[Rfam]
RNA sequence: AGGUCAUUUCAAAUAGGGCUAAUGGGGCUGUGAAAUCGGGAGCUCUUAAUUUUAUGACUAAAGAUUGAGGUUCUCCAUAGAGUGUCAUAGUCACCCAAUAGUACUAAGUAUUUUUGAGAAUAUAUGAUC
Numbered sequence: 001a002g003g004u005c006a007u008u009u010c011a012a013a014u015a016g017g018g019c020u021a022a023u024g025g026g027g028c029u030g031u032g033a034a035a036u037c038g039g040g041a042g043c044u045c046u047u048a049a050u051u052u053u054a055u056g057a058c059u060a061a062a063g064a065u066u067g068a069g070g071u072u073c074u075c076c077a078u079a080g081a082g083u084g085u086c087a088u089a090g091u092c093a094c095c096c097a098a099u100a101g102u103a104c105u106a107a108g109u110a111u112u113u114u115u116g117a118g119a120a121u122a123u124a125u126g127a128u129c
Base pairs, nucleotide, nucleotide: 002059003058004057005056006055007054015046016045017044018043019042020041023039026037027036072122074120076118079115080114081113082112088106089105090104093102094101

Background
A member of the RNA family "Small nucleolar RNA SNORA25" from Myotis lucifugus, 129 nucleotides long. Lineage of the source: Eukaryota > Vertebrata > Dipnotetrapodomorpha > Vespertilionidae > Myotis. Its family is annotated with nucleolus and RNA processing in the Gene Ontology. It is annotated as an H/ACA-box small nucleolar RNA. It scores 91 bits against the family's covariance model.